A member of the RNA family "2dG-II purine riboswitch aptamer", 71 nucleotides long. Its Rfam clan is "Purine riboswitches".
RNA sequence: UCCCUUUGUAAUCCUCCGAACAGGCGGGGGAGCAUCCACCGCCGGGCCUUAACCCGGUGUAACCAGGGGGA
Numbered sequence: 001u002c003c004c005u006u007u008g009u010a011a012u013c014c015u016c017c018g019a020a021c022a023g024g025c026g027g028g029g030g031a032g033c034a035u036c037c038a039c040c041g042c043c044g045g046g047c048c049u050u051a052a053c054c055c056g057g058u059g060u061a062a063c064c065a066g067g068g069g070g071a
Stems, first nucleotide, its partner, number of pairs: 001071008012031007041058006

Its family is annotated with purine nucleobase biosynthetic process in the Gene Ontology.